[Rfam]
RNA: tpke11
Organism: Moellerella wisconsensis
RNA sequence: AUCAGUUGCUGAAUUCCGGACACGGGCGUUGAGGAAACUCUUCGCCCGUGUGCGUAUGUUAAGGGUAAAUUAAAUGGC
Numbered sequence: 001a002u003c004a005g006u007u008g009c010u011g012a013a014u015u016c017c018g019g020a021c022a023c024g025g026g027c028g029u030u031g032a033g034g035a036a037a038c039u040c041u042u043c044g045c046c047c048g049u050g051u052g053c054g055u056a057u058g059u060u061a062a063g064g065g066u067a068a069a070u071u072a073a074a075u076g077g078c
Stems, first nucleotide, its partner, number of pairs: 003019001005017001020051009031040003